[Rfam]
Nucleotides: 068
Stems, first nucleotide, its partner, number of pairs: 001068004
Number, partner (000 for none) and nucleotide at each position: 001068u002067g003066c004065a005000g006000a007000u008000g009000a010000u011000g012000a013000u014000c015000a016000c017000u018000u019000u020000u021000u022000g023000c024000u025000g026000u027000g028000a029000a030000a031000a032000a033000a034000a035000a036000a037000a038000u039000g040000a041000c042000a043000u044000g045000g046000c047000a048000a049000c050000c051000a052000c053000c054000a055000a056000g057000a058000u059000c060000g061000c062000u063000g064000a065004u066003g067002c068001a